[Rfam]
RNA sequence: CUCAGACACCUUUCACAAUGGAUCGUCCGGCACGUACCUGCCGGUGAAGGGAUAAGGUA
Numbered sequence: 001c002u003c004a005g006a007c008a009c010c011u012u013u014c015a016c017a018a019u020g021g022a023u024c025g026u027c028c029g030g031c032a033c034g035u036a037c038c039u040g041c042c043g044g045u046g047a048a049g050g051g052a053u054a055a056g057g058u059a
Stems, first nucleotide, its partner, number of pairs: 009051007027044006

The record is a 59-nucleotide RNA sequence from Arcanobacterium haemolyticum, which matches "msiK RNA" in Rfam. It scores 63 bits against the family's covariance model. Rfam classes the family as a cis-regulatory element.